[Rfam]
RNA sequence: GGUGGAAAUGAUGAAUUAUGGGGCGCUGAUUCAUGUGAUUUGAAAAACGCCAUCCAUUUCCUGAUUCACC
Numbered sequence: 001g002g003u004g005g006a007a008a009u010g011a012u013g014a015a016u017u018a019u020g021g022g023g024c025g026c027u028g029a030u031u032c033a034u035g036u037g038a039u040u041u042g043a044a045a046a047a048c049g050c051c052a053u054c055c056a057u058u059u060c061c062u063g064a065u066u067c068a069c070c
Base pairs, nucleotide, nucleotide: 001070002069003068004067005066006065
Shown here is a 70-nucleotide RNA sequence from Balaenoptera musculus, a member of the family "Small nucleolar RNA SNORD123". For this family Rfam cites "snoSeeker: an advanced computational package for screening of guide and orphan snoRNA genes in the human genome" (Yang et al., Nucleic Acids Res, 2006). Lineage of the source: Eukaryota > Opisthokonta > Amniota > Cetacea > Balaenoptera.